The family of this 96-nucleotide sequence from Flavobacterium supellecticarium is "SAM-I/IV (S-adenosyl methionine) riboswitch aptamer".
RNA sequence: AUCAGUUAUCACGAAUCUCAUAAGAGAUAGCAACCUGCAACAACAAGCAAGGUGCUAAAACGAUAAGCCAAUUCUGUUGGAAAAAAUGUUGUUAUU
Numbered sequence: 001a002u003c004a005g006u007u008a009u010c011a012c013g014a015a016u017c018u019c020a021u022a023a024g025a026g027a028u029a030g031c032a033a034c035c036u037g038c039a040a041c042a043a044c045a046a047g048c049a050a051g052g053u054g055c056u057a058a059a060a061c062g063a064u065a066a067g068c069c070a071a072u073u074c075u076g077u078u079g080g081a082a083a084a085a086a087u088g089u090u091g092u093u094a095u096u
Base pairs, nucleotide, nucleotide: 006066007065008064009063010062015028016027017026018025019024029056030055031054034052035051036050037048038047043090068080069079070078071077
It scores 59 bits against the family's covariance model. The literature on the family includes a 2008 paper in RNA by Weinberg et al., "The aptamer core of SAM-IV riboswitches mimics the ligand-binding site of SAM-I riboswitches".